Annotation
A member of the RNA family "DUF2693-FD RNA", 51 nucleotides long. About the family: DUF2693-FD RNA is a non-coding RNA (ncRNA) recognised in Bacteroides by a bioinformatic analisis by Zasha Weinberg. The sequence is in the family's curated seed alignment.
[Rfam]
RNA sequence: GCCCUAUUGACAGCUUGAAACUGGCAACUGAUAGUGAGAAUCAGAUAGGGC
Dot-bracket structure: (((((((...((......[..)).{..(((((..]..}.))))))))))))
Numbered sequence: 001g002c003c004c005u006a007u008u009g010a011c012a013g014c015u016u017g018a019a020a021c022u023g024g025c026a027a028c029u030g031a032u033a034g035u036g037a038g039a040a041u042c043a044g045a046u047a048g049g050g051c
Stems, first nucleotide, its partner, number of pairs: 001051007011023002019035001025038001028044005